[Rfam]
RNA sequence: GGUUCCGGCGUGACCGGCGCUCUUUUCAAAGGAACAUCUGGAGAGAAAGAAACCCAACCAAGCCCCACCCCUCCCGCCCGCUGGGACGGCCACCGCGGCCCUCGCUGCCGCCGCCGCGCAAACUCACUCGGGCGAGUGAACAUCGGCAACACGGCUGGAUUCGGGACUGGUUGCCUGCCCUACGCUCAGCGCAGCACCAUCACCACAAACAACCGUAGACAUGCGACGGCCCUCGCCGGGAAGGCAAUCCCAAGGCGAGGGCCUGACCACCGAGGAAGAGGCAACUUCCUG
Numbered sequence: 001g002g003u004u005c006c007g008g009c010g011u012g013a014c015c016g017g018c019g020c021u022c023u024u025u026u027c028a029a030a031g032g033a034a035c036a037u038c039u040g041g042a043g044a045g046a047a048a049g050a051a052a053c054c055c056a057a058c059c060a061a062g063c064c065c066c067a068c069c070c071c072u073c074c075c076g077c078c079c080g081c082u083g084g085g086a087c088g089g090c091c092a093c094c095g096c097g098g099c100c101c102u103c104g105c106u107g108c109c110g111c112c113g114c115c116g117c118g119c120a121a122a123c124u125c126a127c128u129c130g131g132g133c134g135a136g137u138g139a140a141c142a143u144c145g146g147c148a149a150c151a152c153g154g155c156u157g158g159a160u161u162c163g164g165g166a167c168u169g170g171u172u173g174c175c176u177g178c179c180c181u182a183c184g185c186u187c188a189g190c191g192c193a194g195c196a197c198c199a200u201c202a203c204c205a206c207a208a209a210c211a212a213c214c215g216u217a218g219a220c221a222u223g224c225g226a227c228g229g230c231c232c233u234c235g236c237c238g239g240g241a242a243g244g245c246a247a248u249c250c251c252a253a254g255g256c257g258a259g260g261g262c263c264u265g266a267c268c269a270c271c272g273a274g275g276a277a278g279a280g281g282c283a284a285c286u287u288c289c290u291g
Stems, first nucleotide, its partner, number of pairs: 007271002010268001016112004124139006154190005228263005234257003238251004274289005
RNA: Streptomyces sRNA 4677